[Rfam]
Nucleotides: 055
Base pairs, nucleotide, nucleotide: 003012004011025047026046027045028044029043031040032039033038
Number, partner (000 for none) and nucleotide at each position: 001000u002000a003012g004011u005000a006000g007000a008000u009000g010000c011004a012003c013000c014000c015000u016000g017000a018000u019000g020000a021000u022000c023000g024000a025047c026046g027045c028044c029043c030000u031040c032039a033038a034000g035000u036000u037000c038033u039032u040031g041000u042000u043029g044028g045027g046026c047025g048000u049000u050000u051000u052000u053000a054000u055000u

Shown here is a 55-nucleotide sequence from Trichocoleus sp. FACHB-832, a member of the family "Nitrogen stress-induced RNA 1". The source organism's lineage runs through Bacteria, Cyanophyceae, Leptolyngbyales, Trichocoleusaceae and Trichocoleus. The literature on the family includes a 2010 paper in J Mol Biol by Ionescu et al., "Heterocyst-specific transcription of NsiR1, a non-coding RNA encoded in a tandem array of direct repeats in cyanobacteria". The match comes from Rfam's covariance-model search (40 bits).